Rfam assigns this 74-nucleotide RNA from Tichodroma muraria to the family "isrJ Hfq binding RNA". The family's consensus secondary structure was predicted with RNAalifold. It is annotated as a small RNA.

RNA sequence: UGUAAAUCUGAUAUCGUCGCCAUAGCUUCAUAGGUCGACAUAGAAUUAAGAGCCUCGCCAUCGUGCGGGGCUUU
Numbered sequence: 001u002g003u004a005a006a007u008c009u010g011a012u013a014u015c016g017u018c019g020c021c022a023u024a025g026c027u028u029c030a031u032a033g034g035u036c037g038a039c040a041u042a043g044a045a046u047u048a049a050g051a052g053c054c055u056c057g058c059c060a061u062c063g064u065g066c067g068g069g070g071c072u073u074u
Stems, first nucleotide, its partner, number of pairs: 016039004021034001050073009